The family of this 135-nucleotide RNA sequence from Caenorhabditis remanei is "Caenorhabditis snoRNA ceN49". By type it is an H/ACA-box small nucleolar RNA. Rfam 15.1 lists 11 matches to the family in 9 species. A reference for the family is Jia et al. (2007), "Systematic identification of non-coding RNA 2,2,7-trimethylguanosine cap structures in Caenorhabditis elegans", BMC Mol Biol.
RNA sequence: UACGCCUCUCUACCAAACACUUACAAGUUCUGUUUAUUGUGAGUGCAUGGAAGAGGCGAAUAGAAAACGGAACGAUGUCCACCCCUUCAAUCAUCAGAAAAUUGGAUUGCGGGCACUUUACCUCGGUCGACAGUU
Numbered sequence: 001u002a003c004g005c006c007u008c009u010c011u012a013c014c015a016a017a018c019a020c021u022u023a024c025a026a027g028u029u030c031u032g033u034u035u036a037u038u039g040u041g042a043g044u045g046c047a048u049g050g051a052a053g054a055g056g057c058g059a060a061u062a063g064a065a066a067a068c069g070g071a072a073c074g075a076u077g078u079c080c081a082c083c084c085c086u087u088c089a090a091u092c093a094u095c096a097g098a099a100a101a102u103u104g105g106a107u108u109g110c111g112g113g114c115a116c117u118u119u120a121c122c123u124c125g126g127u128c129g130a131c132a133g134u135u
Stems, first nucleotide, its partner, number of pairs: 003058007013050003018045009070128002073125003077121002084113003088109005